[Rfam]
RNA: MIR6217 microRNA precursor family
RNA sequence: UGGCUAUAAAAAUAACUUAUUCUAUAGCCACUUUGCUUUGAGUUACGAUAAUUAUUAGGCUAAUUUACAUGAUUAUAGUAAUUCCUUACUAAGUGGUUUACUAUAAUAUUACGGUAAAUAUCCCCGUGUGUUAUAGUAACAUAAUUAUAGUAAAUAUGUAUCCACUUUAUCGUAAAUUAAGUAUAAAAAUUAUCGUAAAUGGAGGUUGCUACAUGAUAACUUAUUCUAUAGCUA
Numbered sequence: 001u002g003g004c005u006a007u008a009a010a011a012a013u014a015a016c017u018u019a020u021u022c023u024a025u026a027g028c029c030a031c032u033u034u035g036c037u038u039u040g041a042g043u044u045a046c047g048a049u050a051a052u053u054a055u056u057a058g059g060c061u062a063a064u065u066u067a068c069a070u071g072a073u074u075a076u077a078g079u080a081a082u083u084c085c086u087u088a089c090u091a092a093g094u095g096g097u098u099u100a101c102u103a104u105a106a107u108a109u110u111a112c113g114g115u116a117a118a119u120a121u122c123c124c125c126g127u128g129u130g131u132u133a134u135a136g137u138a139a140c141a142u143a144a145u146u147a148u149a150g151u152a153a154a155u156a157u158g159u160a161u162c163c164a165c166u167u168u169a170u171c172g173u174a175a176a177u178u179a180a181g182u183a184u185a186a187a188a189a190u191u192a193u194c195g196u197a198a199a200u201g202g203a204g205g206u207u208g209c210u211a212c213a214u215g216a217u218a219a220c221u222u223a224u225u226c227u228a229u230a231g232c233u234a
Base pairs, nucleotide, nucleotide: 001234002233003232004231005230006229007228008227011225012224013223014222015221017219018218019217020216021215023213025211026210027209028208030206031205032204033203034202043198044197045196046195047194048193049192050191051190052189053188056185057184059182060181061179062178063177064176065175066174067173068172071171072170073169075167078163080161086153087152088151089150093148094147095146096145097144098143099138100137101136102135103134104133105132106131107130108129109128113123114122